RNA sequence: UCCUCCCACAAAAAGUUAUGUCUUUUGUUCCCUGUUAUUGGACAUGUAAGAAUUGGAGGCAAAGACAUGUGAAUUUGGAGAAAUCUAAGGCCAGCUUGCUUUCCAAGCUCAAGAUCAACCAUACUACAUAG
Number, nucleotide and partner (000 for none) at each position: 001u000002c059003c058004u057005c056006c055007c000008a000009c000010a000011a000012a000013a000014a000015g000016u000017u046018a045019u044020g043021u042022c041023u040024u000025u000026u000027g031028u000029u000030c000031c027032c000033u000034g000035u000036u000037a000038u000039u000040g023041g022042a021043c020044a019045u018046g017047u000048a000049a000050g000051a000052a000053u000054u000055g006056g005057a004058g003059g002060c000061a000062a000063a000064g000065a000066c000067a000068u000069g000070u000071g124072a000073a122074u000075u121076u000077g000078g000079a000080g000081a000082a000083a000084u000085c000086u000087a000088a000089g000090g000091c000092c000093a109094g108095c107096u106097u105098g104099c000100u000101u000102u000103c000104c098105a097106a096107g095108c094109u093110c000111a000112a000113g000114a000115u000116c000117a000118a000119c000120c000121a075122u073123a000124c071125u000126a000127c000128a000129u000130a000131g000
Small nucleolar RNA SNORA38: a 131-nucleotide RNA sequence from Dipodomys ordii.
Rfam's curators write: ACA38 is a member of the H/ACA class of snoRNA that guide the sites of modification of uridines to pseudouridines.
Rfam links the family to the GO terms Cajal body, RNA processing and nucleolus.
It is annotated as an H/ACA-box small nucleolar RNA.